RNA sequence: CGGCGCCGCGCGACGCGGCGCCGGCCCGACUCCGGUACCUGGUACGGCCGGGGCGG
Numbered sequence: 001c002g003g004c005g006c007c008g009c010g011c012g013a014c015g016c017g018g019c020g021c022c023g024g025c026c027c028g029a030c031u032c033c034g035g036u037a038c039c040u041g042g043u044a045c046g047g048c049c050g051g052g053g054c055g056g
Stems, first nucleotide, its partner, number of pairs: 001023009026056003030053007
Dot-bracket structure: (((((((((.....)))))))))..(((.(((((((..........))))))))))
Rfam assigns this 56-nucleotide RNA to the family "L17-Actino-Proteobacteria ribosomal protein leader". The family's RNA type in Rfam is cis-regulatory leader. For this family Rfam cites "Discovery of 20 novel ribosomal leader candidates in bacteria and archaea" (Eckert and Weinberg, BMC Microbiol, 2020). Rfam's curators put it in the seed alignment.